Source information
eL15-Euryarchaeota ribosomal protein leader: a 55-nucleotide sequence. The literature on the family includes a 2020 paper in BMC Microbiol by Eckert and Weinberg, "Discovery of 20 novel ribosomal leader candidates in bacteria and archaea". The base pairs follow the family's consensus structure, which is taken from published work.
[Rfam]
RNA sequence: GCGGGAUGCGUCCCGUUGAAAGGAAUGUAGCUCUGUAACAGAGCCGAACCUUAGG
Numbered sequence: 001g002c003g004g005g006a007u008g009c010g011u012c013c014c015g016u017u018g019a020a021a022g023g024a025a026u027g028u029a030g031c032u033c034u035g036u037a038a039c040a041g042a043g044c045c046g047a048a049c050c051u052u053a054g055g
Stems, first nucleotide, its partner, number of pairs: 001016005021051003030044005